Rfam assigns this 109-nucleotide sequence from Roseburia sp. 1XD42-69 to the family "TPP riboswitch aptamer (THI element)".
RNA sequence: AAUAAGUAUCUGGUGAGCUUAUAUUGAUAGGCUGAGAGGAAAUGCGGUUACAUUUCGAACCAUGAACCUGACGGAUAAUGCCGGCGUAGGAAGAUAGACAAUGAUUGUA
Numbered sequence: 001a002a003u004a005a006g007u008a009u010c011u012g013g014u015g016a017g018c019u020u021a022u023a024u025u026g027a028u029a030g031g032c033u034g035a036g037a038g039g040a041a042a043u044g045c046g047g048u049u050a051c052a053u054u055u056c057g058a059a060c061c062a063u064g065a066a067c068c069u070g071a072c073g074g075a076u077a078a079u080g081c082c083g084g085c086g087u088a089g090g091a092a093g094a095u096a097g098a099c100a101a102u103g104a105u106u107g108u109a
Stems, first nucleotide, its partner, number of pairs: 007096004011062004017032005039056005067090004072083003